[Rfam]
RNA: S10-Clostridia ribosomal protein leader
Organism: Domibacillus mangrovi
Nucleotides: 105
Base pairs, nucleotide, nucleotide: 014077015076016075018074019073020072021071025063026062027061028060029059084104085103086102087101088100089099090098091097
Number, partner (000 for none) and nucleotide at each position: 001000u002000g003000a004000c005000a006000g007000c008000g009000u010000u011000g012000a013000u014077g015076c016075g017000g018074a019073a020072g021071g022000u023000u024000g025063c026062u027061g028060a029059c030000a031000c032000a033000c034000c035000c036000g037000g038000c039000c040000g041000c042000u043000u044000u045000g046000c047000c048000a049000u050000g051000g052000c053000g054000g055000u056000g057000a058000u059029g060028u061027c062026a063025g064000g065000g066000a067000a068000a069000a070000a071021u072020u073019u074018u075016c076015g077014c078000g079000g080000a081000g082000u083000a084104u085103g086102u087101c088100u089099a090098u091097u092000a093000g094000c095000u096000a097091a098090a099089u100088a101087g102086g103085c104084g105000a